[Rfam]
RNA sequence: CCAGCGAUCGGCGACUGGCGCGAGGUGGAGCACCACCGGGGAGCCGACGCACAUUCCACACACCUCCGGUCGCCGUCCGCCUGGGCACCGGGC
Numbered sequence: 001c002c003a004g005c006g007a008u009c010g011g012c013g014a015c016u017g018g019c020g021c022g023a024g025g026u027g028g029a030g031c032a033c034c035a036c037c038g039g040g041g042a043g044c045c046g047a048c049g050c051a052c053a054u055u056c057c058a059c060a061c062a063c064c065u066c067c068g069g070u071c072g073c074c075g076u077c078c079g080c081c082u083g084g085g086c087a088c089c090g091g092g093c
Stems, first nucleotide, its partner, number of pairs: 004050003008047005015040002017081004025036004072086003